Background:
chrB-b RNA: a 47-nucleotide RNA from Altererythrobacter sp. Root672. The match comes from Rfam's covariance-model search (40 bits). The organism belongs to Altererythrobacter, within Bacteria.

[Rfam]
RNA sequence: CCGGGGCAAAGCAACCUCCCGGUCAGGCCCCCGCGCCCAAGUGUUGC
Numbered sequence: 001c002c003g004g005g006g007c008a009a010a011g012c013a014a015c016c017u018c019c020c021g022g023u024c025a026g027g028c029c030c031c032c033g034c035g036c037c038c039a040a041g042u043g044u045u046g047c
Stems, first nucleotide, its partner, number of pairs: 001022006011047005026037003